[Rfam]
RNA sequence: CGAGGUCACUCUGGAAAGCAGGGCGGGUUUCGUGCGGGCACAUGCCGGGACGGACCCGACCCUCACCGACGGUGAAAGCCGGCACGCCCCCGGGCGCGCCGGUGAAGCUCUCAGGUUGAGAUGACAGAGGGGGAGGC
Numbered sequence: 001c002g003a004g005g006u007c008a009c010u011c012u013g014g015a016a017a018g019c020a021g022g023g024c025g026g027g028u029u030u031c032g033u034g035c036g037g038g039c040a041c042a043u044g045c046c047g048g049g050a051c052g053g054a055c056c057c058g059a060c061c062c063u064c065a066c067c068g069a070c071g072g073u074g075a076a077a078g079c080c081g082g083c084a085c086g087c088c089c090c091c092g093g094g095c096g097c098g099c100c101g102g103u104g105a106a107g108c109u110c111u112c113a114g115g116u117u118g119a120g121a122u123g124a125c126a127g128a129g130g131g132g133g134a135g136g137c
Base pairs, nucleotide, nucleotide: 006132007131009129010128011127012126013125020063021062022061023060065116066115067114068112069111072110074108078103079102080101081100082099083098
A member of the RNA family "Glycine riboswitch aptamer" from Streptomyces sp. SID8455, 137 nucleotides long.
The match comes from Rfam's covariance-model search (44 bits).
Rfam links the family to the GO term glycine biosynthetic process.
About the family: This family represents the bacterial glycine riboswitch.